A member of the RNA family "FMN riboswitch aptamer (RFN element)" from Capillibacterium thermochitinicola, 144 nucleotides long. The RFN element is a highly conserved domain that is found frequently in the 5'-untranslated regions of prokaryotic mRNAs that encode for flavin mononucleotide (FMN) biosynthesis and transport proteins. The family's consensus secondary structure is taken from published work.

[Rfam]
RNA sequence: AAGAUCCUUCAGGGCAGGGUGAGGCCGCAUGGCCAAUUCCCGACCGGUGGUAAGGGGUUAACCCAAGUCCACGAGCUUAAUUUUUUAAGCUGAUCUGGUGCAAGUCCAGAACCGACGGUACAGUCCGGAUGGGAGAAGGAGUCU
Numbered sequence: 001a002a003g004a005u006c007c008u009u010c011a012g013g014g015c016a017g018g019g020u021g022a023g024g025c026c027g028c029a030u031g032g033c034c035a036a037u038u039c040c041c042g043a044c045c046g047g048u049g050g051u052a053a054g055g056g057g058u059u060a061a062c063c064c065a066a067g068u069c070c071a072c073g074a075g076c077u078u079a080a081u082u083u084u085u086u087a088a089g090c091u092g093a094u095c096u097g098g099u100g101c102a103a104g105u106c107c108a109g110a111a112c113c114g115a116c117g118g119u120a121c122a123g124u125c126c127g128g129a130u131g132g133g134a135g136a137a138g139g140a141g142u143c144u
Base pairs, nucleotide, nucleotide: 003142005140006139007138008137009136010135017041018040019039043124044123045114046113047072048071049070050069067112068111075090076089077088094110095109096108097107098106116127117126118125